The family of this 169-nucleotide RNA sequence from Streptomyces sp. SID5785 is "c-di-AMP riboswitch aptamer (ydaO/yuaA leader)".
Rfam links the family to the GO terms regulation of gene expression and cyclic-di-AMP binding.
RNA sequence: GAAUCCUCAUCGACGACCCGUGACGGCAGGAGCGGGGGACCCACAGGCAGUAACGCCGCCCGGGAAUUCCCCAUGCGGCUCGGGGUGAAGCCGCGUCCGUGACCCGGACGCGGCCGGGCAGCUCCAGCCCGAACCCGACAGCUCACCUCGCAGGCGACGGAGAGGACAA
Dot-bracket structure: ...(((......................)))((((((....(.......................................)(((.....(((((((((.....)))))))))..((((.......))))...))).........))))))..................
Numbered sequence: 001g002a003a004u005c006c007u008c009a010u011c012g013a014c015g016a017c018c019c020g021u022g023a024c025g026g027c028a029g030g031a032g033c034g035g036g037g038g039a040c041c042c043a044c045a046g047g048c049a050g051u052a053a054c055g056c057c058g059c060c061c062g063g064g065a066a067u068u069c070c071c072c073a074u075g076c077g078g079c080u081c082g083g084g085g086u087g088a089a090g091c092c093g094c095g096u097c098c099g100u101g102a103c104c105c106g107g108a109c110g111c112g113g114c115c116g117g118g119c120a121g122c123u124c125c126a127g128c129c130c131g132a133a134c135c136c137g138a139c140a141g142c143u144c145a146c147c148u149c150g151c152a153g154g155c156g157a158c159g160g161a162g163a164g165g166a167c168a169a
Stems, first nucleotide, its partner, number of pairs: 004031003032151006042082001083136003091113009116130004